Notes:
CyVA-1 RNA: a 78-nucleotide RNA. Rfam describes the family as follows. Cyanobacteria, Acidobacteria (1 example), Verrucomicrobia (1 example). The sequence is in the family's curated seed alignment. The base pairs follow the family's consensus structure, which is taken from published work.

[Rfam]
RNA sequence: GUGCCGCAGUGGUGUUUUGUAGUUUCCCACCACGGAUUGCUGACCAAAGGAGAACGGCGACAGGAAGGCAAGCGGUAU
Numbered sequence: 001g002u003g004c005c006g007c008a009g010u011g012g013u014g015u016u017u018u019g020u021a022g023u024u025u026c027c028c029a030c031c032a033c034g035g036a037u038u039g040c041u042g043a044c045c046a047a048a049g050g051a052g053a054a055c056g057g058c059g060a061c062a063g064g065a066a067g068g069c070a071a072g073c074g075g076u077a078u
Base pairs, nucleotide, nucleotide: 001078002077003076004075005074006073009033010032011031012030038070039069040068041067044064045063
Dot-bracket structure: ((((((..((((.................))))....((((..((.................))..))))..))))))